Overview:
This 245-nucleotide RNA sequence from Tepidibacillus sp. HK-1 belongs to the Rfam family "BsrG". About the family: bsrE, bsrG and bsrH pair through intermolecular interactions with antisense sRNAs. They form type I toxin/antitoxin system that includes an mRNA encoding for a short, toxic peptide (bsrE, bsrG and bsrH) and an antitoxin that is comprised of an antisense RNA. bsrG encodes a 39-amino-acid toxin, and the 180 nucleotide antisense sRNA called SR4 acts as the antitoxin (they overlap by 123 nucleotides). SR4 interaction with the 3'UTR of bsrG RNA promotes bsrG degradation and inhibits its translation. The family's RNA type in Rfam is small RNA. The match comes from Rfam's covariance-model search (93 bits).
RNA sequence: UACAUAGAAUCGGCUAUCAAGGGCGGUUGGCUCAUCUCCAGAGAGGAGGUGAUGCUAUGGAAGUAAAGGACGCUUUAAUUCUGAUGUUCAUGUUCGGCAUGUUCAUCUUGGCCUUACUUUCCUACUUGAAAAACAAGUAGACCUCCCUUGAGCCCGGAAAGCUUGGAGGUCUACCAUCCACUUUCUAUAGGUCGAUCGCCUUUAAGGCAAUCUAUUGUAAGACCGUAGAUCCUGCAACAUCUGCG
Numbered sequence: 001u002a003c004a005u006a007g008a009a010u011c012g013g014c015u016a017u018c019a020a021g022g023g024c025g026g027u028u029g030g031c032u033c034a035u036c037u038c039c040a041g042a043g044a045g046g047a048g049g050u051g052a053u054g055c056u057a058u059g060g061a062a063g064u065a066a067a068g069g070a071c072g073c074u075u076u077a078a079u080u081c082u083g084a085u086g087u088u089c090a091u092g093u094u095c096g097g098c099a100u101g102u103u104c105a106u107c108u109u110g111g112c113c114u115u116a117c118u119u120u121c122c123u124a125c126u127u128g129a130a131a132a133a134c135a136a137g138u139a140g141a142c143c144u145c146c147c148u149u150g151a152g153c154c155c156g157g158a159a160a161g162c163u164u165g166g167a168g169g170u171c172u173a174c175c176a177u178c179c180a181c182u183u184u185c186u187a188u189a190g191g192u193c194g195a196u197c198g199c200c201u202u203u204a205a206g207g208c209a210a211u212c213u214a215u216u217g218u219a220a221g222a223c224c225g226u227a228g229a230u231c232c233u234g235c236a237a238c239a240u241c242u243g244c245g
Stems, first nucleotide, its partner, number of pairs: 001219004005214003009211001010195006017151007025142001027140002032052008059121007072087002096113003196210001198208002224245007